[Rfam]
This 124-nucleotide sequence from Vibrio toranzoniae belongs to the Rfam family "t44 RNA". A search with the family's covariance model found it, with a score of 76 bits.
RNA sequence: UAACUUAUUUCUUUAAAUCACACACAUUCCGACACAUGUUCCGGGGUGCCUCAACAACGCAGAUAACGGCUGAAAAGUGGUUAGUUGUUAGGGGUCGGAUUCAUGGGGGAUGUGGAGGCCUAAC
Numbered sequence: 001u002a003a004c005u006u007a008u009u010u011c012u013u014u015a016a017a018u019c020a021c022a023c024a025c026a027u028u029c030c031g032a033c034a035c036a037u038g039u040u041c042c043g044g045g046g047u048g049c050c051u052c053a054a055c056a057a058c059g060c061a062g063a064u065a066a067c068g069g070c071u072g073a074a075a076a077g078u079g080g081u082u083a084g085u086u087g088u089u090a091g092g093g094g095u096c097g098g099a100u101u102c103a104u105g106g107g108g109g110a111u112g113u114g115g116a117g118g119c120c121u122a123a124c
Base pairs, nucleotide, nucleotide: 023114024113025112026111027110028109029108030107035105036104037103038102040099041098042097043096048095049094050093051092052091